[Rfam]
RNA sequence: GGUCUGUGAUGAAUAGUAAAAGGUCUGAUUAUCCAAAGACUGGUACUUCCAUGACCUUUUUUCCCAGCAGUUUCUCACCAGUCACAGCACAGUAAUGGUGUGACUGGCAGAGUGUGUGCUGACAGCUUGGGAUGUGUUCAGUUCAUGUUAAUCUGAAGUGUUUGAGACAUGACUGGGAUCAGCAUCCGACAGUCUUACUUGAAGGAGUUUGAGGUCUUGGAUGGUUUUCAGUGGACAUGUGAUCUGACUUUUCUGCUGAGACC
Numbered sequence: 001g002g003u004c005u006g007u008g009a010u011g012a013a014u015a016g017u018a019a020a021a022g023g024u025c026u027g028a029u030u031a032u033c034c035a036a037a038g039a040c041u042g043g044u045a046c047u048u049c050c051a052u053g054a055c056c057u058u059u060u061u062u063c064c065c066a067g068c069a070g071u072u073u074c075u076c077a078c079c080a081g082u083c084a085c086a087g088c089a090c091a092g093u094a095a096u097g098g099u100g101u102g103a104c105u106g107g108c109a110g111a112g113u114g115u116g117u118g119c120u121g122a123c124a125g126c127u128u129g130g131g132a133u134g135u136g137u138u139c140a141g142u143u144c145a146u147g148u149u150a151a152u153c154u155g156a157a158g159u160g161u162u163u164g165a166g167a168c169a170u171g172a173c174u175g176g177g178a179u180c181a182g183c184a185u186c187c188g189a190c191a192g193u194c195u196u197a198c199u200u201g202a203a204g205g206a207g208u209u210u211g212a213g214g215u216c217u218u219g220g221a222u223g224g225u226u227u228u229c230a231g232u233g234g235a236c237a238u239g240u241g242a243u244c245u246g247a248c249u250u251u252u253c254u255g256c257u258g259a260g261a262c263c
Stems, first nucleotide, its partner, number of pairs: 001263004037245003041241001048221004053216002061207004065121005078107009129187001131186005144171006152165002
RNA: Small Cajal body specific RNA 6
Organism: Pedionomus torquatus